[Rfam]
RNA sequence: UUUAAAAAAUCUUAACAAUGUGAGUAAGGUAGGAGACUCUAUUUUUUGAAUAAAGACAUGAGUUGUGUCCAUUAUAUUGAGAAGAAGUUGAUCAUAGAAACAAUUCAAGAAUAUUAUAAUAAGCGACUGAAUUUGCC
Numbered sequence: 001u002u003u004a005a006a007a008a009a010u011c012u013u014a015a016c017a018a019u020g021u022g023a024g025u026a027a028g029g030u031a032g033g034a035g036a037c038u039c040u041a042u043u044u045u046u047u048g049a050a051u052a053a054a055g056a057c058a059u060g061a062g063u064u065g066u067g068u069c070c071a072u073u074a075u076a077u078u079g080a081g082a083a084g085a086a087g088u089u090g091a092u093c094a095u096a097g098a099a100a101c102a103a104u105u106c107a108a109g110a111a112u113a114u115u116a117u118a119a120u121a122a123g124c125g126a127c128u129g130a131a132u133u134u135g136c137c
Base pairs, nucleotide, nucleotide: 003135004134005133006132074114075113076112077111078110086105087104088103089102090101
RNA: Small nucleolar RNA J26